[Rfam]
The family of this 57-nucleotide RNA from Fundicoccus ignavus is "Ribosomal protein L13 leader". NCBI's taxonomy places the organism under Bacteria, Bacilli, Lactobacillales, Aerococcaceae, Fundicoccus. By type it is a cis-regulatory leader. This family is a putative r-protein leader autoregulatory structure found in B. subtilis and other low-GC Gram-positive bacteria. It is located in the 5' untranslated regions of mRNAs encoding the L13-S9 (rplM-rpsI) ribosomal protein operon. The match comes from Rfam's covariance-model search (56 bits).
RNA sequence: GGUAUUGUUUGCCCCACUGUUGAGCCCCGGAAACUCAAAAGUAUUGUCAAACAACUA
Numbered sequence: 001g002g003u004a005u006u007g008u009u010u011g012c013c014c015c016a017c018u019g020u021u022g023a024g025c026c027c028c029g030g031a032a033a034c035u036c037a038a039a040a041g042u043a044u045u046g047u048c049a050a051a052c053a054a055c056u057a
Stems, first nucleotide, its partner, number of pairs: 006053006016042003020038005